This 62-nucleotide RNA sequence from Philodulcilactobacillus myokonensis belongs to the Rfam family "Fluoride riboswitch aptamer (crcB RNA motif)". It scores 34 bits against the family's covariance model. Pairs were carried over by alignment from the consensus structure, which is taken from published work.
RNA sequence: UAAUUUAUUGGCGAUGACGUUCGCCACGAUUUUCUGAAAAGAAUGAUGACGUCUAUGUAUCU
Numbered sequence: 001u002a003a004u005u006u007a008u009u010g011g012c013g014a015u016g017a018c019g020u021u022c023g024c025c026a027c028g029a030u031u032u033u034c035u036g037a038a039a040a041g042a043a044u045g046a047u048g049a050c051g052u053c054u055a056u057g058u059a060u061c062u
Stems, first nucleotide, its partner, number of pairs: 010025004016053006